[Rfam]
RNA sequence: UAACUCUGGUUUCCCUUCAUAACGUAUAAAUCUUUCGCCUUUUACUAAAGAUUUCCGUGGAGGGGAACACUCAAAUGAGUCUUUGAUAUUUUUGAAUGCUUCACUAUGGUGAAGCU
Numbered sequence: 001u002a003a004c005u006c007u008g009g010u011u012u013c014c015c016u017u018c019a020u021a022a023c024g025u026a027u028a029a030a031u032c033u034u035u036c037g038c039c040u041u042u043u044a045c046u047a048a049a050g051a052u053u054u055c056c057g058u059g060g061a062g063g064g065g066a067a068c069a070c071u072c073a074a075a076u077g078a079g080u081c082u083u084u085g086a087u088a089u090u091u092u093u094g095a096a097u098g099c100u101u102c103a104c105u106a107u108g109g110u111g112a113a114g115c116u
Stems, first nucleotide, its partner, number of pairs: 003080004009068011028054008096116001098115006
The family of this 116-nucleotide RNA sequence from Arctia plantaginis is "U5 spliceosomal RNA". The match comes from Rfam's covariance-model search (101 bits). Pairs were carried over by alignment from the consensus structure, which is taken from published work. U5 RNA is a component of both types of known spliceosome. It is annotated as a spliceosomal small nuclear RNA.